[Rfam]
RNA sequence: GUGUGUGUUGUCAGUGAUGUAUCUGUUAAUCUGACUUCAGUAUGAGGUCAAUACACAGUCAUUUCGUCACUACCACUGAGACGACACUCUU
Numbered sequence: 001g002u003g004u005g006u007g008u009u010g011u012c013a014g015u016g017a018u019g020u021a022u023c024u025g026u027u028a029a030u031c032u033g034a035c036u037u038c039a040g041u042a043u044g045a046g047g048u049c050a051a052u053a054c055a056c057a058g059u060c061a062u063u064u065c066g067u068c069a070c071u072a073c074c075a076c077u078g079a080g081a082c083g084a085c086a087c088u089c090u091u
Base pairs, nucleotide, nucleotide: 001091003089005087006086007085008084009083010082011081012080
Description: Small nucleolar RNA SNORD70: a 91-nucleotide sequence from Hemibagrus wyckioides. snoRNA HBII-234 belongs to the C/D family of snoRNAs. Pairs were carried over by alignment from the consensus structure. Its family is annotated with RNA processing and nucleolus in the Gene Ontology. The match comes from Rfam's covariance-model search (52 bits).